[Rfam]
Source information
The record is a 119-nucleotide RNA sequence from Oryza barthii, which matches "Small nucleolar RNA Z188" in Rfam. Gene Ontology terms of the family: nucleolus and RNA processing. The match comes from Rfam's covariance-model search (123 bits). The family's consensus secondary structure was predicted with PFOLD. Rfam classes the family as a C/D-box small nucleolar RNA. The organism belongs to Oryza, within Eukaryota.
RNA sequence: GCGUGCCAGUGAUGAUUGCAGAGAUAAAAAAUGGUGAAUUCUGGAUGAGCGUGCUCGCGUGCUGCUUUGUGCGCGCGCGGCCGUGGUGAUAUCCCUUACUCAAUUCAUCUGAGGCACGU
Dot-bracket structure: .((((((.........................................................................................................)))))).